Overview
Shown here is a 155-nucleotide sequence from Actinacidiphila reveromycinica, a member of the family "c-di-AMP riboswitch aptamer (ydaO/yuaA leader)". NCBI's taxonomy places the organism under Bacteria, Bacillati, Actinomycetes, Streptomycetaceae, Actinacidiphila. It scores 72 bits against the family's covariance model.
RNA sequence: GCACCGCCUCCGCCUAAUCCGGCCACCGGCCGGAGCCGGGGACCCAGGAGCACUUCGGGGUGAAUCGGGGCAGACGCGACGAGCGCCGGCCCCGUAGGGCGACCUUCCCCGCCCGAACCCGUCAGCUAACCCGGUCGGCGGUCCACGGAAGGAGU
Numbered sequence: 001g002c003a004c005c006g007c008c009u010c011c012g013c014c015u016a017a018u019c020c021g022g023c024c025a026c027c028g029g030c031c032g033g034a035g036c037c038g039g040g041g042a043c044c045c046a047g048g049a050g051c052a053c054u055u056c057g058g059g060g061u062g063a064a065u066c067g068g069g070g071c072a073g074a075c076g077c078g079a080c081g082a083g084c085g086c087c088g089g090c091c092c093c094g095u096a097g098g099g100c101g102a103c104c105u106u107c108c109c110c111g112c113c114c115g116a117a118c119c120c121g122u123c124a125g126c127u128a129a130c131c132c133g134g135u136c137g138g139c140g141g142u143c144c145a146c147g148g149a150a151g152g153a154g155u
Stems, first nucleotide, its partner, number of pairs: 011140004018034005035135006045057001058120003066094006097114004